Annotation: Rfam assigns this 240-nucleotide sequence from Pseudanabaena sp. FACHB-2040 to the family "Group I catalytic intron". Rfam describes the family as follows. Group I catalytic introns are large self-splicing ribozymes. They catalyse their own excision from mRNA, tRNA and rRNA precursors in a wide range of organisms. The core secondary structure consists of 9 paired regions (P1-P9). These fold to essentially two domains - the P4-P6 domain (formed from the stacking of P5, P4, P6 and P6a helices) and the P3-P9 domain (formed from the P8, P3, P7 and P9 helices). The secondary structure mark-up for this family represents only this conserved core. Group I catalytic introns often have long ORFs inserted in loop regions. The window size for this search is chosen to minimise search time and catch the small examples. A larger window size will find more matches. Lineage of the source: Bacteria > Bacillati > Cyanobacteriota > Cyanophyceae > Pseudanabaena. Rfam 15.1 lists 5,602 matches to the family in 1,395 species.
RNA sequence: CUACGGACUUAGAAAACUGAGCCUUGGCAGAGAAAUGUGCCAAGUGGAAGCUCUCAAACUCAGGGAAACCUAACUUUGGUCAGACUACCUGCUUAGUCAGCUAGCUGCUCAGACACGGCAAUCCUGAGCCAAGCCGUUCUUCUCCUUUGGAGUAGACGGAAGGUGCAGAGGCCCGACGGGAGCUACCCUAACGUCAAGUCGAGGGUAAAGGGAGGGUCCAAUUCUCAAAGCCGCUCGGCU
Numbered sequence: 001c002u003a004c005g006g007a008c009u010u011a012g013a014a015a016a017c018u019g020a021g022c023c024u025u026g027g028c029a030g031a032g033a034a035a036u037g038u039g040c041c042a043a044g045u046g047g048a049a050g051c052u053c054u055c056a057a058a059c060u061c062a063g064g065g066a067a068a069c070c071u072a073a074c075u076u077u078g079g080u081c082a083g084a085c086u087a088c089c090u091g092c093u094u095a096g097u098c099a100g101c102u103a104g105c106u107g108c109u110c111a112g113a114c115a116c117g118g119c120a121a122u123c124c125u126g127a128g129c130c131a132a133g134c135c136g137u138u139c140u141u142c143u144c145c146u147u148u149g150g151a152g153u154a155g156a157c158g159g160a161a162g163g164u165g166c167a168g169a170g171g172c173c174c175g176a177c178g179g180g181a182g183c184u185a186c187c188c189u190a191a192c193g194u195c196a197a198g199u200c201g202a203g204g205g206u207a208a209a210g211g212g213a214g215g216g217u218c219c220a221a222u223u224c225u226c227a228a229a230g231c232c233g234c235u236c237g238g239c240u
Stems, first nucleotide, its partner, number of pairs: 005024002008021005028039002049184005055178001060127006069118002128164002134159003142152004168219001170218005186205004225238002228235001
Dot-bracket structure: ....((.(((((....))))).))...((........)).........(((((.(....((((((...((..............................................))...))))))((....(((.....((((...))))....)))...))...[.[[[[[...).))))).((((............))))........]]]]]].....((.(......).))..